This 31-nucleotide RNA sequence from Oreochromis niloticus belongs to the Rfam family "Iron response element II". A search with the family's covariance model found it, with a score of 36 bits. The family's RNA type in Rfam is cis-regulatory element. Rfam describes the family as follows. IRE, TFRC, SLC40A1, SDHB, SLC11A2, CDC42BPA, ACO2, ALAS2_H.SAPIENS, CDC14A, EPAS1, ALAS2, qoxD, Hao1, NDUFS1, transferrin, Aconitate.

[Rfam]
RNA sequence: GCAUUAUCGGGAGCAGUGAUUUCCAUAAUGU
Numbered sequence: 001g002c003a004u005u006a007u008c009g010g011g012a013g014c015a016g017u018g019a020u021u022u023c024c025a026u027a028a029u030g031u
Stems, first nucleotide, its partner, number of pairs: 001031007009024005014018001
Notes: Pairs were carried over by alignment from the consensus structure, which is taken from published work. A reference for the family is Koeller et al. (1989), "A cytosolic protein binds to structural elements within the iron regulatory region of the transferrin receptor mRNA", Proc Natl Acad Sci U S A.